Shown here is a 219-nucleotide RNA sequence from Arabis alpina, a member of the family "Plant small nucleolar RNA U3". The match comes from Rfam's covariance-model search (199 bits). The literature on the family includes a 1997 paper in Nucleic Acids Res by Zwieb, "The uRNA database". Rfam's curators write: Small nucleolar RNAs (snoRNAs) are involved in the processing and modification of rRNA in the nucleolus. There are two main classes of snoRNAs: the box C/D class, and the box H/ACA class. U3 snoRNA is a member of the box C/D class. Indeed, the box C/D element is a subset of the six short sequence elements found in all U3 snoRNAs, namely boxes A, A', B, C, C', and D. The U3 snoRNA secondary structure is characterised by a small 5' domain (with boxes A and A'), and a larger 3' domain (with boxes B, C, C', and D), the two domains being linked by a single-stranded hinge. Boxes B and C form the B/C motif, which appears to be exclusive to U3 snoRNAs, and boxes C' and D form the C'/D motif. The latter is functionally similar to the C/D motifs found in other snoRNAs. The 5' domain and the hinge region act as a pre-rRNA-binding domain. The 3' domain has conserved protein-binding sites. Both the box B/C and box C'/D motifs are sufficient for nuclear retention of U3 snoRNA. The box C'/D motif is also necessary for nucleolar localisation, stability and hyper-methylation of U3 snoRNA. Both box B/C and C'/D motifs are involved in specific protein interactions and are necessary for the rRNA processing functions of U3 snoRNA. Pairs were carried over by alignment from the consensus structure, which is taken from published work. The family is grouped with related families in Rfam's "U3 clan". The family has 24 seed sequences and 3,759 matches in Rfam 15.1. Rfam links the family to the GO terms nucleolus and RNA processing.
[Rfam]
RNA sequence: ACGACCUUACUUGAACAGGAUCUGUUCUAUAGUCUCGUACCUCUGUAUCCUUGAUUUCUAAGGAGACAGGCCCUUAACCCUGGUUGAUGAACCAUGACCGUGCGAUUAGAGCGUGAUUAACGGCCACGAUCAAUCUUCGGAUCGGUUCGGUGCUGUAGAGGAUCGUUACUCGGCUCGGUCUAACCUUGCCGGGGUGGUCGCACGGCGGUCUGACAGGUU
Dot-bracket structure: (((..((.....((((((...))))))...))..).))....((((.((((((.....)))))).)))).........((((...............(((((((((((.((((......(((((..(((((.(((....))).))).))..))))).......)))).((((((..((.....))..)))))).)))))))))))........))))..